[Rfam]
RNA sequence: CCUACGACAAUGAUGUUCUCAAACACGCAUAGUUCAUCUGAUGCGGGCUUACUCCCCGCACUGAAGAACCUUUUUUGUCUUUCGCUCCUAUCUGAGUCGAGGC
Numbered sequence: 001c002c003u004a005c006g007a008c009a010a011u012g013a014u015g016u017u018c019u020c021a022a023a024c025a026c027g028c029a030u031a032g033u034u035c036a037u038c039u040g041a042u043g044c045g046g047g048c049u050u051a052c053u054c055c056c057c058g059c060a061c062u063g064a065a066g067a068a069c070c071u072u073u074u075u076u077g078u079c080u081u082u083c084g085c086u087c088c089u090a091u092c093u094g095a096g097u098c099g100a101g102g103c
Stems, first nucleotide, its partner, number of pairs: 005099004
Annotation:
Rfam assigns this 103-nucleotide RNA sequence from Gonium pectorale to the family "Small nucleolar RNA snR60/Z15/Z230/Z193/J17". The base pairs follow the family's consensus structure. The literature on the family includes a 1999 paper in Science by Lowe and Eddy, "A computational screen for methylation guide snoRNAs in yeast". It scores 45 bits against the family's covariance model. NCBI's taxonomy places the organism under Eukaryota, Chlorophyta, core chlorophytes, Chlorophyceae, Gonium.